[Rfam]
RNA sequence: GCCAGCUAAUGAUGGCUUGUGUAUAAAACCACUCACUGGGGUAGACAGGUCUGAUGCUUGCUGGU
Number, nucleotide and partner (000 for none) at each position: 001g065002c064003c063004a062005g061006c000007u000008a000009a000010u000011g000012a000013u000014g051015g050016c049017u048018u047019g046020u045021g000022u043023a042024u000025a000026a000027a000028a000029c039030c038031a037032c000033u000034c000035a000036c000037u031038g030039g029040g000041g000042u023043a022044g000045a020046c019047a018048g017049g016050u015051c014052u000053g000054a000055u000056g000057c000058u000059u000060g000061c005062u004063g003064g002065u001

Rfam assigns this 65-nucleotide RNA from Python bivittatus to the family "Selenocysteine insertion sequence 1". Rfam links the family to the GO term selenocysteine incorporation. NCBI's taxonomy places the organism under Eukaryota, Euteleostomi, Lepidosauria, Toxicofera, Python. The literature on the family includes a 1996 paper in RNA by Walczak et al., "A novel RNA structural motif in the selenocysteine insertion element of eukaryotic selenoprotein mRNAs". The base pairs follow the family's consensus structure, which is taken from published work. It is annotated as a cis-regulatory element.